[Rfam]
Description: This 145-nucleotide RNA from Sesamum indicum belongs to the Rfam family "small nucleolar RNA snoR137". The source organism's lineage runs through Eukaryota, Tracheophyta, Mesangiospermae, eudicotyledons and Sesamum. The family has 4 seed sequences and 808 matches in Rfam 15.1. Pairs were carried over by alignment from the consensus structure, which was predicted with RNAalifold.
RNA sequence: GUUGCUUCUUACUGGUGAACUCCCUCUUUAAAUGAGUGAGAGAUGUUCAUGUUUCCGAAGCAUAUAUCAAUUUUGUCAGUUUUAAACAGCGCGAUGUUUCACUUGAUGUGUUAUGUCAUCGUGCUACCUGUCUCCUGCUACAUUU
Numbered sequence: 001g002u003u004g005c006u007u008c009u010u011a012c013u014g015g016u017g018a019a020c021u022c023c024c025u026c027u028u029u030a031a032a033u034g035a036g037u038g039a040g041a042g043a044u045g046u047u048c049a050u051g052u053u054u055c056c057g058a059a060g061c062a063u064a065u066a067u068c069a070a071u072u073u074u075g076u077c078a079g080u081u082u083u084a085a086a087c088a089g090c091g092c093g094a095u096g097u098u099u100c101a102c103u104u105g106a107u108g109u110g111u112u113a114u115g116u117c118a119u120c121g122u123g124c125u126a127c128c129u130g131u132c133u134c135c136u137g138c139u140a141c142a143u144u145u
Stems, first nucleotide, its partner, number of pairs: 003062006016049005021043002024040002075139001077137003088125003092121005